[Rfam]
RNA sequence: AUGCAGUGAUGAUGCCCAUCUUGGUUUCGCUUUUCUCUGAAUUCUAGUGAAGACGAAAUUCUCUUGGCUGUCUGAGCAU
Numbered sequence: 001a002u003g004c005a006g007u008g009a010u011g012a013u014g015c016c017c018a019u020c021u022u023g024g025u026u027u028c029g030c031u032u033u034u035c036u037c038u039g040a041a042u043u044c045u046a047g048u049g050a051a052g053a054c055g056a057a058a059u060u061c062u063c064u065u066g067g068c069u070g071u072c073u074g075a076g077c078a079u
Stems, first nucleotide, its partner, number of pairs: 001079004
Dot-bracket structure: ((((.......................................................................))))
The family of this 79-nucleotide RNA sequence from Turnix velox is "Small nucleolar RNA SNORD53/SNORD92". A search with the family's covariance model found it, with a score of 83 bits. The literature on the family includes a 2001 paper in EMBO J by Huttenhofer et al., "RNomics: an experimental approach that identifies 201 candidates for novel, small, non-messenger RNAs in mouse". Taxonomically the source falls in Turnix (Eukaryota, Eumetazoa, Deuterostomia, Sarcopterygii). Gene Ontology terms of the family: nucleolus and RNA processing. The pairing is the family consensus, mapped onto this sequence.